[Rfam]
This 79-nucleotide RNA from Triplophysa rosa belongs to the Rfam family "mir-130 microRNA precursor family". For this family Rfam cites "Identification of tissue-specific microRNAs from mouse" (Lagos-Quintana et al., Curr Biol, 2002).

RNA sequence: UGUUGACCAGGGCCCUUUUUCUGUUGUACUACUGUACAGUCAGAGGAGCAGUGCAAUAUUAAAAGGGCAUUGGCUGACA
Numbered sequence: 001u002g003u004u005g006a007c008c009a010g011g012g013c014c015c016u017u018u019u020u021c022u023g024u025u026g027u028a029c030u031a032c033u034g035u036a037c038a039g040u041c042a043g044a045g046g047a048g049c050a051g052u053g054c055a056a057u058a059u060u061a062a063a064a065g066g067g068c069a070u071u072g073g074c075u076g077a078c079a
Stems, first nucleotide, its partner, number of pairs: 001079003005074001007073004012068008022058009
Dot-bracket structure: (((.(.((((.((((((((..(((((((((...................)))))))))..)))))))).)))))..)))